[Rfam]
About this RNA:
The family of this 79-nucleotide sequence from Panthera leo is "Small nucleolar RNA SNORD69". The match comes from Rfam's covariance-model search (93 bits). On this family, see Huttenhofer et al., EMBO J 2001: "RNomics: an experimental approach that identifies 201 candidates for novel, small, non-messenger RNAs in mouse". Rfam describes the family as follows. snoRNA HBII-210 belongs to the C/D family of snoRNAs. It is the human orthologue of the mouse MBII-210 and is predicted to guide the 2'O-ribose methylation of large 28S rRNA on residue G4464. NCBI's taxonomy places the organism under Eukaryota, Metazoa, Eumetazoa, Teleostomi, Panthera.

RNA sequence: AACACGAAGCGAAUGAUGAUAAACUGGAUCUGACAGACUGUGUGCUGAGUUUGUUCAAUCCAACCCUGAGCUUCGCGUU
Numbered sequence: 001a002a003c004a005c006g007a008a009g010c011g012a013a014u015g016a017u018g019a020u021a022a023a024c025u026g027g028a029u030c031u032g033a034c035a036g037a038c039u040g041u042g043u044g045c046u047g048a049g050u051u052u053g054u055u056c057a058a059u060c061c062a063a064c065c066c067u068g069a070g071c072u073u074c075g076c077g078u079u
Stems, first nucleotide, its partner, number of pairs: 001079003005075006
Dot-bracket structure: (((.((((((...........................................................)))))).)))